[Rfam]
RNA: Group II catalytic intron D1-D4-6
RNA sequence: GGAUUCCGGUUUAUCCAAGGUUUAGCCAACCAGAUAAUAGCGAGUCUUGGGAUGAUGCCGGUAACGGCAUCUGACAAGCGUAGACAGCAAGAAAGCAGGGUUGAAUAGUGAUUGAGCUUCGAAACGUUAACUUCAGUCGGUCGACGUCUUAACUGGUGCGGAAGACAAUAGCAUGUAAUGCGAUAUGGCGAGUAUUAUGUGGCACUGCGGAGUCAGAGAACC
Number, nucleotide and partner (000 for none) at each position: 001g000002g000003a000004u000005u000006c000007c000008g000009g000010u000011u000012u036013a035014u034015c033016c000017a000018a000019g031020g030021u029022u028023u191024a000025g189026c188027c000028a022029a021030c020031c019032a000033g015034a014035u013036a012037a000038u090039a000040g088041c087042g000043a000044g085045u084046c083047u082048u080049g079050g075051g000052a000053u000054g071055a070056u069057g068058c067059c066060g065061g000062u000063a000064a000065c060066g059067g058068c057069a056070u055071c054072u000073g000074a000075c050076a000077a000078g000079c049080g048081u000082a047083g046084a045085c044086a000087g041088c040089a000090a038091g000092a000093a000094a000095g000096c000097a000098g000099g000100g000101u000102u000103g000104a000105a000106u000107a000108g000109u000110g000111a000112u000113u216114g214115a000116g213117c212118u211119u210120c209121g208122a000123a000124a000125c000126g000127u000128u000129a000130a000131c000132u000133u000134c207135a206136g205137u204138c000139g203140g166141u165142c164143g000144a000145c160146g159147u158148c000149u000150u000151a000152a000153c000154u000155g000156g000157u000158g147159c146160g145161g000162a000163a000164g142165a141166c140167a000168a000169u000170a000171g000172c201173a200174u199175g198176u197177a196178a195179u194180g193181c192182g000183a000184u000185a000186u000187g000188g026189c025190g000191a023192g181193u180194a179195u178196u177197a176198u175199g174200u173201g172202g000203c139204a137205c136206u135207g134208c121209g120210g119211a118212g117213u116214c114215a000216g113217a000218g000219a000220a000221c000222c000